[Rfam]
Shown here is a 147-nucleotide RNA sequence from Tetragenococcus halophilus, a member of the family "PyrR binding site". Pairs were carried over by alignment from the consensus structure, which is taken from published work. Rfam 15.1 lists 1,498 matches to the family in 930 species. Taxonomically the source falls in Tetragenococcus halophilus (Bacteria, Bacillati, Lactobacillales, Tetragenococcus). This family represents the PyrR binding site and terminator structure. This RNA structure is found upstream of a variety of genes involved in pyrimidine biosynthesis and transport. The alignment also includes a portion of the antiterminator structure.
RNA sequence: UUAUCCUUUAAGUUAGUCCCGUGAGGCUAAAAAGGACGUGAUAAAAUAGACAAAGAAGAGCAAAUUUUUCAUUGUUGAAUUUUAAUAUACUUUUUUAACCAUCAGUGUAUACUCACUCCUGCCUCUAACGGGUAGGAGUUUUUUUAU
Number, nucleotide and partner (000 for none) at each position: 001u000002u000003a000004u036005c035006c034007u033008u032009u031010a000011a000012g000013u030014u029015a028016g027017u026018c025019c000020c000021g000022u000023g000024a000025g018026g017027c016028u015029a014030a013031a009032a008033a007034g006035g005036a004037c000038g000039u000040g000041a000042u000043a000044a000045a000046a000047u078048a000049g076050a075051c074052a073053a072054a000055g070056a069057a068058g067059a066060g065061c000062a000063a000064a000065u060066u059067u058068u057069u056070c055071a000072u053073u052074g051075u050076u049077g000078a047079a000080u000081u000082u000083u000084a000085a000086u000087a000088u000089a000090c000091u000092u000093u000094u000095u000096u000097a000098a000099c000100c000101a000102u000103c000104a000105g000106u000107g000108u000109a000110u000111a000112c000113u000114c000115a139116c138117u137118c136119c135120u134121g133122c132123c131124u130125c000126u000127a000128a000129c000130g124131g123132g122133u121134a120135g119136g118137a117138g116139u115140u000141u000142u000143u000144u000145u000146a000147u000